[Rfam]
RNA: Eukaryotic small subunit ribosomal RNA, nucleotides 22 to 613
Organism: Capsaspora owczarzaki
RNA sequence: AGUCAUAUGCUUGUCUCAAAGAUUAAGCCAUGCAUGUCUAAGUAUAAACCAAUUUAUACGGUGAAACUGCGAAUGGCUCAUUACAUCAGUUAUAGUUUAUUUGAUAUUACCUUACUACUUGGAUAACCGUAGUAAUUCUAGAGCUAAUACAUGCAAAAAAUCCCGACUUCUGGAAGGGAUGUAUUUAUUAGAUACAAAACCAAACCGGGGCAACUCGGUCGUGGUGAUUCAUAAUAACUUUGCGAAUCGCAUGGCUUUACGCUGGCGAUGCAUCAUUCAAAUUUCUGCCCUAUCAACUUUCGAUGGUAAGGUAUUGGCUUACCAUGGUUACAACGGGUAACGGAGAAUUAGGGUUCGAUUCCGGAGAGGGAGCCUGAGAGAUGGCUACCACAUCCAAGGAAGGCAGCAGGCGCGCAAAUUACCCAAUCCUGACACAGGGAGGUAGUGACAAUAAAUAACAAUCCAGGGCUUUUACAGUCUUGGAAUUGGAAUGAGAACAAUUUAAAUCCCUUAUCGAGGAACAAUUGGAGGGCAAGUCUGGUGCCAGCAGCCGCGGUAAUUCCAGCUCCAAUAGCGUAUAUUAAAGUUGCUG
Numbered sequence: 001a002g003u004c005a006u007a008u009g010c011u012u013g014u015c016u017c018a019a020a021g022a023u024u025a026a027g028c029c030a031u032g033c034a035u036g037u038c039u040a041a042g043u044a045u046a047a048a049c050c051a052a053u054u055u056a057u058a059c060g061g062u063g064a065a066a067c068u069g070c071g072a073a074u075g076g077c078u079c080a081u082u083a084c085a086u087c088a089g090u091u092a093u094a095g096u097u098u099a100u101u102u103g104a105u106a107u108u109a110c111c112u113u114a115c116u117a118c119u120u121g122g123a124u125a126a127c128c129g130u131a132g133u134a135a136u137u138c139u140a141g142a143g144c145u146a147a148u149a150c151a152u153g154c155a156a157a158a159a160a161u162c163c164c165g166a167c168u169u170c171u172g173g174a175a176g177g178g179a180u181g182u183a184u185u186u187a188u189u190a191g192a193u194a195c196a197a198a199a200c201c202a203a204a205c206c207g208g209g210g211c212a213a214c215u216c217g218g219u220c221g222u223g224g225u226g227a228u229u230c231a232u233a234a235u236a237a238c239u240u241u242g243c244g245a246a247u248c249g250c251a252u253g254g255c256u257u258u259a260c261g262c263u264g265g266c267g268a269u270g271c272a273u274c275a276u277u278c279a280a281a282u283u284u285c286u287g288c289c290c291u292a293u294c295a296a297c298u299u300u301c302g303a304u305g306g307u308a309a310g311g312u313a314u315u316g317g318c319u320u321a322c323c324a325u326g327g328u329u330a331c332a333a334c335g336g337g338u339a340a341c342g343g344a345g346a347a348u349u350a351g352g353g354u355u356c357g358a359u360u361c362c363g364g365a366g367a368g369g370g371a372g373c374c375u376g377a378g379a380g381a382u383g384g385c386u387a388c389c390a391c392a393u394c395c396a397a398g399g400a401a402g403g404c405a406g407c408a409g410g411c412g413c414g415c416a417a418a419u420u421a422c423c424c425a426a427u428c429c430u431g432a433c434a435c436a437g438g439g440a441g442g443u444a445g446u447g448a449c450a451a452u453a454a455a456u457a458a459c460a461a462u463c464c465a466g467g468g469c470u471u472u473u474a475c476a477g478u479c480u481u482g483g484a485a486u487u488g489g490a491a492u493g494a495g496a497a498c499a500a501u502u503u504a505a506a507u508c509c510c511u512u513a514u515c516g517a518g519g520a521a522c523a524a525u526u527g528g529a530g531g532g533c534a535a536g537u538c539u540g541g542u543g544c545c546a547g548c549a550g551c552c553g554c555g556g557u558a559a560u561u562c563c564a565g566c567u568c569c570a571a572u573a574g575c576g577u578a579u580a581u582u583a584a585a586g587u588u589g590c591u592g
Stems, first nucleotide, its partner, number of pairs: 001582003005579007014453001016451001020446001021413001027411003031408003036070002041068003048062002077366003087287003092282002096280002102275004118153001120151002127143001130140003160180005167173002185237006199225004207216003247268004252264004289337003296328003303325008341363004345356004368389002371386003391402001393400002419444001421443003427439005459488003462484009495515002497512001499511001525571006538565004547554002